[Rfam]
RNA sequence: GGCAUGGGUAUUGCUAAGGAUCUGGCACAGGGCAGCCAACGGCGGUUGCCUGUCGAACGACAAAGGCGUCGC
Number, nucleotide and partner (000 for none) at each position: 001g000002g000003c000004a000005u000006g000007g000008g000009u000010a000011u000012u000013g000014c000015u000016a000017a000018g000019g000020a000021u000022c000023u000024g000025g000026c000027a000028c000029a000030g000031g050032g049033c048034a047035g046036c045037c044038a000039a000040c000041g000042g000043c000044g037045g036046u035047u034048g033049c032050c031051u000052g000053u000054c000055g000056a000057a000058c000059g000060a000061c000062a000063a000064a000065g000066g000067c000068g000069u000070c000071g000072c000

This 72-nucleotide RNA sequence from Azotobacter vinelandii belongs to the Rfam family "narK RNA". Rfam's curators put it in the seed alignment. The family's consensus secondary structure is taken from published work. It is annotated as a cis-regulatory element.